Iron response element I: a 35-nucleotide sequence from Molossus molossus. It is annotated as a cis-regulatory element. Gene Ontology term of the family: response to iron ion. NCBI's taxonomy places the organism under Eukaryota, Bilateria, Vertebrata, Teleostomi, Molossus. The family has 62 seed sequences and 6,829 matches in Rfam 15.1.
RNA sequence: CUGUCUCUCGCUUCAACAGCGUUUGGACAGAGCAG
Numbered sequence: 001c002u003g004u005c006u007c008u009c010g011c012u013u014c015a016a017c018a019g020c021g022u023u024u025g026g027a028c029a030g031a032g033c034a035g
Stems, first nucleotide, its partner, number of pairs: 001035004006031003010028001012027005017021001